The family of this 300-nucleotide sequence from Carlito syrichta is "7SK RNA".
RNA sequence: GGAUGUGAGGGUGAUCUGGCUACGACAUCUGUCACCCCACUGAUCGCCAGGGUUGAUUCGGCUGAUCUGGCUGGCUAGGUGUGUGUCUCCUUCCUCCCUCACCGCUCCAUGUGUGUCCCUCCCGAAGCUGCCCGCUUGGUCGAAGAGGACGACCAUCCCCGCUAGAGGAGGACUGUGCUUCAGUCAAGGGUAUACAAGUAGCUGCGCUCCCUUGCUAGAACCUCCAAACAAGCUCUCUAAAAUGCUCUUGCCCAGGCACAGUCAGGCAAGUGGCUUCUGCAUUAGUACUCUGCAGAUUCC
Numbered sequence: 001g002g003a004u005g006u007g008a009g010g011g012u013g014a015u016c017u018g019g020c021u022a023c024g025a026c027a028u029c030u031g032u033c034a035c036c037c038c039a040c041u042g043a044u045c046g047c048c049a050g051g052g053u054u055g056a057u058u059c060g061g062c063u064g065a066u067c068u069g070g071c072u073g074g075c076u077a078g079g080u081g082u083g084u085g086u087c088u089c090c091u092u093c094c095u096c097c098c099u100c101a102c103c104g105c106u107c108c109a110u111g112u113g114u115g116u117c118c119c120u121c122c123c124g125a126a127g128c129u130g131c132c133c134g135c136u137u138g139g140u141c142g143a144a145g146a147g148g149a150c151g152a153c154c155a156u157c158c159c160c161g162c163u164a165g166a167g168g169a170g171g172a173c174u175g176u177g178c179u180u181c182a183g184u185c186a187a188g189g190g191u192a193u194a195c196a197a198g199u200a201g202c203u204g205c206g207c208u209c210c211c212u213u214g215c216u217a218g219a220a221c222c223u224c225c226a227a228a229c230a231a232g233c234u235c236u237c238u239a240a241a242a243u244g245c246u247c248u249u250g251c252c253c254a255g256g257c258a259c260a261g262u263c264a265g266g267c268a269a270g271u272g273g274c275u276u277c278u279g280c281a282u283u284a285g286u287a288c289u290c291u292g293c294a295g296a297u298u299c300c
Stems, first nucleotide, its partner, number of pairs: 001108003005102007013093002018090002024087005030081004035074002037070003042067004046062003116171002118168004122139004127135002141161002147158003201267003207261002222256002229250004273300001276296005281289001283287001
Lineage of the source: Eukaryota > Metazoa > Eumetazoa > Dipnotetrapodomorpha > Carlito. The base pairs follow the family's consensus structure, which is taken from published work. Rfam classes the family as a non-coding RNA gene. Clan: 7SK clan. 7SK was discovered as an abundant small nuclear RNA in the mid-70s but a possible function has only recently been suggested. Two independent studies have found that 7SK RNA binds the CDK9/cyclin T complex (known as elongation factor P-TEFb).